[Rfam]
RNA sequence: ACGUUGUGAAUCAGCCACUACAUCGCAGUCACGUGAUUAUAUGUAAGGUUUGCUCAAAUAAAAAAAGAAAAAAUUCCCUAUAAUCAGUACAUUAACCUGAAGGAUUUCUUUUUUUUGACAAAAACCCCCACAUAUAUAUACAAUUUAUAUUUCAUGUGAUGUGACGUAGUGGAACAUUCCUGACG
Numbered sequence: 001a002c003g004u005u006g007u008g009a010a011u012c013a014g015c016c017a018c019u020a021c022a023u024c025g026c027a028g029u030c031a032c033g034u035g036a037u038u039a040u041a042u043g044u045a046a047g048g049u050u051u052g053c054u055c056a057a058a059u060a061a062a063a064a065a066a067g068a069a070a071a072a073a074u075u076c077c078c079u080a081u082a083a084u085c086a087g088u089a090c091a092u093u094a095a096c097c098u099g100a101a102g103g104a105u106u107u108c109u110u111u112u113u114u115u116u117g118a119c120a121a122a123a124a125c126c127c128c129c130a131c132a133u134a135u136a137u138a139u140a141c142a143a144u145u146u147a148u149a150u151u152u153c154a155u156g157u158g159a160u161g162u163g164a165c166g167u168a169g170u171g172g173a174a175c176a177u178u179c180c181u182g183a184c185g
Stems, first nucleotide, its partner, number of pairs: 003184004008179003015172007023164004029159004034154003